[Rfam]
RNA sequence: UUUCCAUUAAGAAAGAUGUCAUCCAGUGCCCUGACUACUUGGAUCCAGAAAAUUUAAUUGCAAAUGAGCACACCAGGCAAUUGUAUAGUAAGAACUGGAUUCCAGUGUCAAGCACUGGAAUGACACCACCUGCUGCGCAAACU
Numbered sequence: 001u002u003u004c005c006a007u008u009a010a011g012a013a014a015g016a017u018g019u020c021a022u023c024c025a026g027u028g029c030c031c032u033g034a035c036u037a038c039u040u041g042g043a044u045c046c047a048g049a050a051a052a053u054u055u056a057a058u059u060g061c062a063a064a065u066g067a068g069c070a071c072a073c074c075a076g077g078c079a080a081u082u083g084u085a086u087a088g089u090a091a092g093a094a095c096u097g098g099a100u101u102c103c104a105g106u107g108u109c110a111a112g113c114a115c116u117g118g119a120a121u122g123a124c125a126c127c128a129c130c131u132g133c134u135g136c137g138c139a140a141a142c143u
Stems, first nucleotide, its partner, number of pairs: 011138001012134001017125006023118007032110004037106003041102008

The record is a 143-nucleotide RNA from Trichonephila clavata, which matches "Wolbachia sRNA 46" in Rfam. The organism belongs to Trichonephila, within Eukaryota. Rfam classes the family as a small RNA. Pairs were carried over by alignment from the consensus structure.